[Rfam]
RNA sequence: GGGGCCGACCGGAAUUGACAGCUUGAGCAGGCUGCGUGUAAGCAUGUCAGGAGUUGUACGUAUUUCCUGUAAAUAAAACGUUCACAACAAUAAAUGGCGAAGAAAACUACGCCCUUGCUGCUUAAUUAGGAUUAAUUUUCAGCAUGUGCCUCGCUGACCCCACGUGCUGCCGGGUUAGCAACUGAGGUAUCACAAUGCAGCGCUGGUUCUUACAAAGUUAUGGUGUAAGGACAAGAUAAAGUAACUAAGGAAUGGAUACGUUUGCUACUGACCUUUUCCAUUCCCGACAACCUGACAGUAGCUACACAUGUAGAAAGCGCGACAGUUUCCUUGUCUGGACGAGAGUUCGAAUCUCUCCGGCUCCACUU
Numbered sequence: 001g002g003g004g005c006c007g008a009c010c011g012g013a014a015u016u017g018a019c020a021g022c023u024u025g026a027g028c029a030g031g032c033u034g035c036g037u038g039u040a041a042g043c044a045u046g047u048c049a050g051g052a053g054u055u056g057u058a059c060g061u062a063u064u065u066c067c068u069g070u071a072a073a074u075a076a077a078a079c080g081u082u083c084a085c086a087a088c089a090a091u092a093a094a095u096g097g098c099g100a101a102g103a104a105a106a107c108u109a110c111g112c113c114c115u116u117g118c119u120g121c122u123u124a125a126u127u128a129g130g131a132u133u134a135a136u137u138u139u140c141a142g143c144a145u146g147u148g149c150c151u152c153g154c155u156g157a158c159c160c161c162a163c164g165u166g167c168u169g170c171c172g173g174g175u176u177a178g179c180a181a182c183u184g185a186g187g188u189a190u191c192a193c194a195a196u197g198c199a200g201c202g203c204u205g206g207u208u209c210u211u212a213c214a215a216a217g218u219u220a221u222g223g224u225g226u227a228a229g230g231a232c233a234a235g236a237u238a239a240a241g242u243a244a245c246u247a248a249g250g251a252a253u254g255g256a257u258a259c260g261u262u263u264g265c266u267a268c269u270g271a272c273c274u275u276u277u278c279c280a281u282u283c284c285c286g287a288c289a290a291c292c293u294g295a296c297a298g299u300a301g302c303u304a305c306a307c308a309u310g311u312a313g314a315a316a317g318c319g320c321g322a323c324a325g326u327u328u329c330c331u332u333g334u335c336u337g338g339a340c341g342a343g344a345g346u347u348c349g350a351a352u353c354u355c356u357c358c359g360g361c362u363c364c365a366c367u368u
Base pairs, nucleotide, nucleotide: 001364002363003362004361005360006359007358019337020336021335023333025331027329031326032325033324034323035321036320037319038318039317043310044309045308046307047306048069049068050067051066052065055084056083058081059080060079061078114146116144117143118142119141120140147189148188149187150186151185152184153179154178155177156176159174160173161172164201165200206232207231208230209229210228211227212226213225214224216246217245218244219243220242221241249284250283251282252281253280254279255278256277260273262271264302265301266300267299269295341357342356343355344354345353
transfer-messenger RNA: a 368-nucleotide RNA sequence from Rhodocytophaga rosea. It is annotated as a non-coding RNA gene. A reference for the family is Williams and Bartel (1996), "Phylogenetic analysis of tmRNA secondary structure", RNA.